[Rfam]
Nucleotides: 212
Base pairs, nucleotide, nucleotide: 001134002133003132004131005130013123014122015121016120025112026111029109030108031107035051036050037049038048039047052094053093054092055091056090057089058088135150136149137148138147
Number, partner (000 for none) and nucleotide at each position: 001134g002133g003132a004131c005130a006000u007000a008000a009000a010000c011000g012000c013123g014122c015121g016120u017000g018000u019000a020000a021000u022000a023000a024000g025112c026111g027000g028000c029109u030108c031107g032000g033000a034000c035051c036050c037049g038048g039047g040000g041000g042000c043000g044000g045000u046000a047039c048038c049037c050036g051035g052094c053093g054092g055091c056090u057089c058088c059000a060000c061000c062000a063000g064000a065000u066000a067000c068000c069000c070000u071000g072000u073000c074000a075000u076000u077000u078000g079000c080000a081000g082000g083000a084000a085000c086000a087000u088058g089057g090056g091055g092054c093053c094052g095000a096000a097000a098000c099000a100000g101000g102000a103000u104000c105000g106000a107031c108030g109029a110000a111026c112025g113000u114000c115000u116000a117000a118000a119000g120016a121015c122014g123013u124000c125000u126000g127000c128000u129000u130005u131004g132003u133002c134001u135150c136149g137148g138147u139000g140000a141000g142000a143000u144000a145000c146000c147138a148137c149136c150135g151000u152000u153000a154000u155000c156000g157000g158000u159000u160000c161000a162000a163000a164000u165000a166000g167000u168000a169000u170000a171000g172000u173000u174000g175000c176000a177000a178000a179000u180000g181000a182000c183000a184000a185000c186000c187000a188000u189000g190000c191000u192000c193000c194000g195000g196000u197000c198000g199000c200000a201000a202000u203000g204000g205000c206000u207000g208000c209000g210000u211000a212000a